mir-973 microRNA precursor family: an 80-nucleotide RNA from Drosophila mojavensis.
The match comes from Rfam's covariance-model search (86 bits).
Its family is annotated with RISC complex and miRNA-mediated post-transcriptional gene silencing in the Gene Ontology.
The family's consensus secondary structure was predicted with RNAalifold.
The source organism's lineage runs through Eukaryota, Endopterygota, Diptera, Drosophila and mojavensis species complex.
[Rfam]
Nucleotides: 080
Stems, first nucleotide, its partner, number of pairs: 003078006010071003014068004019063001022060005029055006
Number, partner (000 for none) and nucleotide at each position: 001000u002000c003078a004077c005076u006075u007074u008073u009000c010071g011070u012069g013000u014068u015067c016066g017065a018000u019063g020000u021000u022060u023059g024058a025057a026056c027000u028000u029055g030054g031053a032052u033051u034050u035000u036000u037000a038000a039000a040000a041000u042000a043000u044000g045000a046000a047000a048000a049000g050034a051033a052032a053031u054030c055029u056026g057025u058024u059023c060022a061000u062000u063019c064000c065017u066016c067015g068014a069012c070011a071010c072000u073008a074007a075006g076005a077004g078003u079000u080000u